The family of this 134-nucleotide RNA sequence from Streptomyces candidus is "c-di-AMP riboswitch aptamer (ydaO/yuaA leader)". It scores 104 bits against the family's covariance model.
[Rfam]
RNA sequence: CGUGCGCGUGCGCCGAAUUCCGUGAGGAAACCGGGGAACCACCAAUUGGGGUGAAUCGGGCUGUAGUCGGCCCGUAGGAGACCUUCCUGCUCCGAACCCGUCAGCUAACCCGGUAGGCGAGAAGGAAGGAAAGG
Dot-bracket structure: ..........((((...(((......)))((((((....((.....))(((.....((((..........))))..((((.........))))...))).........)))))).))))...............